[Rfam]
RNA sequence: GCCUAGCCCGGAUCGCAGCGGCAUCCUUUUGCGCCGGUGUUCGGCGUGAAAGAUACAGCGCAGAGCCGGAAAAGCU
Numbered sequence: 001g002c003c004u005a006g007c008c009c010g011g012a013u014c015g016c017a018g019c020g021g022c023a024u025c026c027u028u029u030u031g032c033g034c035c036g037g038u039g040u041u042c043g044g045c046g047u048g049a050a051a052g053a054u055a056c057a058g059c060g061c062a063g064a065g066c067c068g069g070a071a072a073a074g075c076u
Base pairs, nucleotide, nucleotide: 009068010067011066013064014063018059019058023054024053025052029049030048031047032046033045034044035043036042

The record is a 76-nucleotide sequence from Flavobacterium sp., which matches "Flavo-1 RNA" in Rfam. Pairs were carried over by alignment from the consensus structure, which is taken from published work. A search with the family's covariance model found it, with a score of 68 bits. The organism belongs to Flavobacterium, within Bacteria.